The family of this 61-nucleotide sequence from Coptis chinensis is "Plastid-psbA-4 3UTR RNA". Its Rfam clan is "Plastid-psbA 3UTR RNA clan". The base pairs follow the family's consensus structure, which was predicted with LocARNA. Plastid psbA-4 is a non-coding RNA (ncRNA) present in plastids. It was identified in inverted repeat sequences in the 3 prime untranslate region (3UTR) of photosystem II quinone-binding protein (psbA). On this family, see Richter et al., Plant Commun 2023: "Retrograde signaling in plants: A critical review focusing on the GUN pathway and beyond". By type it is a cis-regulatory element. The organism belongs to Coptis, within Eukaryota.

RNA sequence: AAAAUGCAGGACUAAUACCCGCUUUCUUGACAGAACAAGAAUUUUGGUAUUAGUCCUGCAA
Numbered sequence: 001a002a003a004a005u006g007c008a009g010g011a012c013u014a015a016u017a018c019c020c021g022c023u024u025u026c027u028u029g030a031c032a033g034a035a036c037a038a039g040a041a042u043u044u045u046g047g048u049a050u051u052a053g054u055c056c057u058g059c060a061a
Base pairs, nucleotide, nucleotide: 006059007058008057009056010055011054012053013052014051015050016049017048021044024041025040026039027038028037029036